[Rfam]
RNA sequence: UUGCAGGUGGUGAUUGUCAUUUUUCCUAAAUGAUGAUGCCGAAGGGGGAGCGGGUCUGCGCAAUGCCGUUUUCCCGCCAUUCUUGCAA
Numbered sequence: 001u002u003g004c005a006g007g008u009g010g011u012g013a014u015u016g017u018c019a020u021u022u023u024u025c026c027u028a029a030a031u032g033a034u035g036a037u038g039c040c041g042a043a044g045g046g047g048g049a050g051c052g053g054g055u056c057u058g059c060g061c062a063a064u065g066c067c068g069u070u071u072u073c074c075c076g077c078c079a080u081u082c083u084u085g086c087a088a
Stems, first nucleotide, its partner, number of pairs: 001088006007080006013037010044073003050069004
A member of the RNA family "S6-S18-Chlorobi ribosomal protein leader", 88 nucleotides long. Rfam classes the family as a cis-regulatory leader.